[Rfam]
Nucleotides: 102
Base pairs, nucleotide, nucleotide: 018088019087020086021085022084023083024082025081029049031047032046033045034044035043058078059077060076061075062074063073064072
Number, partner (000 for none) and nucleotide at each position: 001000a002000a003000c004000a005000u006000u007000u008000a009000u010000a011000u012000a013000u014000c015000g016000u017000a018088u019087u020086u021085u022084c023083a024082u025081a026000u027000a028000a029049u030000c031047g032046c033045a034044g035043g036000g037000a038000u039000a040000u041000g042000g043035c044034c045033u046032g047031c048000a049029a050000g051000u052000u053000u054000c055000u056000a057000c058078c059077g060076g061075u062074u063073u064072a065000c066000c067000g068000u069000a070000a071000a072064u073063g074062a075061a076060c077059c078058g079000a080000c081025u082024a083023u084022g085021a086020a087019a088018a089000a090000a091000g092000c093000a094000a095000u096000a097000g098000u099000a100000u101000g102000g